[Rfam]
RNA sequence: GUGCCGGGACGACCCGGCGCCUCCGCGCAACCCGAUGGGGACGGCCCCU
Numbered sequence: 001g002u003g004c005c006g007g008g009a010c011g012a013c014c015c016g017g018c019g020c021c022u023c024c025g026c027g028c029a030a031c032c033c034g035a036u037g038g039g040g041a042c043g044g045c046c047c048c049u
Stems, first nucleotide, its partner, number of pairs: 001020008037048004
The family of this 49-nucleotide sequence from Roseomonas acroporae is "Guanidine-II riboswitch aptamer (mini-ykkC)". From the family's description: Simpler in structure and has fewer highly conserved nucleotide positions than the ykkC-yxkD leader. Despite this each of its two stem-loop structures directly bind free guanidine. Pairs were carried over by alignment from the consensus structure, which is taken from published work. It scores 46 bits against the family's covariance model. Taxonomically the source falls in Roseomonas (Bacteria, Pseudomonadati, Pseudomonadota, Acetobacterales).